[Rfam]
RNA sequence: UAAUUGAUGUGAGUUCAAUCGAGGUAAGAGCCAAGUCGCCUCGUAGCUGACAGGCAACUGGUGGAGAGAUCCUAAGGUUGAAGACCUGUGACAAAGUACCCCUGAGAACCCAUGAUGCUAAGUUCGACGCAUUCGAUCUCUUCGAGGAUGGCGAGUUUCUCUUUCGCACUAUAU
Number, nucleotide and partner (000 for none) at each position: 001u000002a000003a000004u000005u000006g000007a000008u000009g000010u000011g000012a000013g000014u000015u000016c000017a000018a000019u000020c043021g042022a041023g040024g039025u000026a000027a000028g000029a000030g000031c000032c000033a000034a000035g000036u000037c000038g000039c024040c023041u022042c021043g020044u000045a000046g000047c000048u000049g000050a089051c088052a087053g086054g085055c080056a079057a078058c077059u076060g000061g000062u000063g000064g071065a070066g000067a000068g000069a000070u065071c064072c000073u000074a000075a000076g059077g058078u057079u056080g055081a000082a000083g000084a000085c054086c053087u052088g051089u050090g000091a000092c000093a000094a000095a000096g149097u148098a000099c146100c000101c144102c000103u000104g000105a000106g000107a000108a000109c000110c000111c000112a000113u000114g000115a000116u000117g000118c000119u000120a000121a000122g000123u000124u000125c000126g000127a000128c000129g000130c000131a000132u000133u000134c000135g000136a000137u000138c000139u000140c000141u000142u000143c000144g101145a000146g099147g000148a097149u096150g000151g167152c166153g165154a000155g000156u000157u000158u000159c000160u000161c000162u000163u000164u000165c153166g152167c151168a000169c000170u000171a000172u000173a000174u000
RNA: Group II catalytic intron D1-D4-4
Organism: Paenibacillus baekrokdamisoli